[Rfam]
Small nucleolar RNA SNORA68: a 132-nucleotide RNA from Propithecus coquereli. It scores 133 bits against the family's covariance model. On this family, see Ganot et al., Genes Dev 1997: "The family of box ACA small nucleolar RNAs is defined by an evolutionarily conserved secondary structure and ubiquitous sequence elements essential for RNA accumulation". U68 is a member of the H/ACA class of small nucleolar RNAs (snoRNAs) which act as guides in the the modification of uridines to pseudouridines. The family's consensus secondary structure was predicted with PFOLD. The family's RNA type in Rfam is H/ACA-box small nucleolar RNA. Taxonomically the source falls in Propithecus (Eukaryota, Dipnotetrapodomorpha, Mammalia, Strepsirrhini).

RNA sequence: CUUGCACCUAAACCCAAGAAUCACUGUUUUUGUAGCACUGGUUUAAACAGAGGUGCAAACAGCAGGUGGAUCUCAUCGCCUUUGGGGAGCUGUGGCUGUGCGCCUCAAAGUGAAUUUGGAGGUCCUUCAUUC
Numbered sequence: 001c002u003u004g005c006a007c008c009u010a011a012a013c014c015c016a017a018g019a020a021u022c023a024c025u026g027u028u029u030u031u032g033u034a035g036c037a038c039u040g041g042u043u044u045a046a047a048c049a050g051a052g053g054u055g056c057a058a059a060c061a062g063c064a065g066g067u068g069g070a071u072c073u074c075a076u077c078g079c080c081u082u083u084g085g086g087g088a089g090c091u092g093u094g095g096c097u098g099u100g101c102g103c104c105u106c107a108a109a110g111u112g113a114a115u116u117u118g119g120a121g122g123u124c125c126u127u128c129a130u131u132c
Stems, first nucleotide, its partner, number of pairs: 002058008019043005025037004068125007080110008089101002